A member of the RNA family "Small nucleolar RNA snoR27" from Papaver somniferum, 97 nucleotides long. A reference for the family is Brown et al. (2001), "Multiple snoRNA gene clusters from Arabidopsis", RNA. The family is grouped with related families in Rfam's "snR68 clan".

[Rfam]
RNA sequence: AGUGGAUCAAUGAUGUUUAAAUACUGCGUUAUCUUCCUGAAAAAAUUUCUCCAAUGAGAAAUUUUGUUAGAUGACAAAAUGCCUACCGAGGUCCUUU
Numbered sequence: 001a002g003u004g005g006a007u008c009a010a011u012g013a014u015g016u017u018u019a020a021a022u023a024c025u026g027c028g029u030u031a032u033c034u035u036c037c038u039g040a041a042a043a044a045a046u047u048u049c050u051c052c053a054a055u056g057a058g059a060a061a062u063u064u065u066g067u068u069a070g071a072u073g074a075c076a077a078a079a080u081g082c083c084u085a086c087c088g089a090g091g092u093c094c095u096u097u
Stems, first nucleotide, its partner, number of pairs: 001097002004094004
Dot-bracket structure: ((.((((...................................................................................)))).))